[Rfam]
RNA sequence: UCGGGGACUGCAGGCUCCCGUUUCCACGAAGACGCCGGUGCGUCCAAGCUCUGC
Numbered sequence: 001u002c003g004g005g006g007a008c009u010g011c012a013g014g015c016u017c018c019c020g021u022u023u024c025c026a027c028g029a030a031g032a033c034g035c036c037g038g039u040g041c042g043u044c045c046a047a048g049c050u051c052u053g054c
Base pairs, nucleotide, nucleotide: 002020003019004018005017006016010054011053012052013051014050031044032043033042034041035040

chrB-b RNA: a 54-nucleotide RNA sequence. The base pairs follow the family's consensus structure, which is taken from published work. Rfam's curators put it in the seed alignment.